This 49-nucleotide RNA from Roseivivax halodurans belongs to the Rfam family "SAM/SAH riboswitch aptamer". Rfam links the family to the GO terms regulation of gene expression and S-adenosylmethionine metabolic process. The base pairs follow the family's consensus structure, which is taken from published work.

RNA sequence: UCCCUGCCACAACGGCUUCCUGGCGUGGCAGCGAACAUUCAAUGGAGCG
Numbered sequence: 001u002c003c004c005u006g007c008c009a010c011a012a013c014g015g016c017u018u019c020c021u022g023g024c025g026u027g028g029c030a031g032c033g034a035a036c037a038u039u040c041a042a043u044g045g046a047g048c049g
Stems, first nucleotide, its partner, number of pairs: 004031007013022002015048003019045002